[Rfam]
RNA sequence: CAGGCAUGCUGGAGUUCCGCCAGCGGCGCCUGGGCGUGUGCCCGACACCCGACGGAACAGAA
Numbered sequence: 001c002a003g004g005c006a007u008g009c010u011g012g013a014g015u016u017c018c019g020c021c022a023g024c025g026g027c028g029c030c031u032g033g034g035c036g037u038g039u040g041c042c043c044g045a046c047a048c049c050c051g052a053c054g055g056a057a058c059a060g061a062a
Stems, first nucleotide, its partner, number of pairs: 014058006025049002031044005

The record is a 62-nucleotide sequence from Mesorhizobium sp. J18, which matches "ybhL leader" in Rfam. On this family, see Corbino et al., Genome Biol 2005: "Evidence for a second class of S-adenosylmethionine riboswitches and other regulatory RNA motifs in alpha-proteobacteria". The match comes from Rfam's covariance-model search (56 bits). Taxonomically the source falls in Mesorhizobium (Bacteria, Pseudomonadati, Pseudomonadota, Alphaproteobacteria).